The family of this 120-nucleotide sequence is "Flavobacterium-1 RNA".

[Rfam]
RNA sequence: GUGCACCAGCGUCCAAAUCUUGCCUUUGGCAUUUCCCUGUACGUUAGCGAUAAUCCGCGAGGUAGCAAUGUGUGCAACACCAUGGCGCGCCAAGUUCCCUGAUCAGGAGGCGCGGCGGGU
Numbered sequence: 001g002u003g004c005a006c007c008a009g010c011g012u013c014c015a016a017a018u019c020u021u022g023c024c025u026u027u028g029g030c031a032u033u034u035c036c037c038u039g040u041a042c043g044u045u046a047g048c049g050a051u052a053a054u055c056c057g058c059g060a061g062g063u064a065g066c067a068a069u070g071u072g073u074g075c076a077a078c079a080c081c082a083u084g085g086c087g088c089g090c091c092a093a094g095u096u097c098c099c100u101g102a103u104c105a106g107g108a109g110g111c112g113c114g115g116c117g118g119g120u
Stems, first nucleotide, its partner, number of pairs: 002076005007070002009044004014039002021031004047066002055062002080119002083117002086114006098107003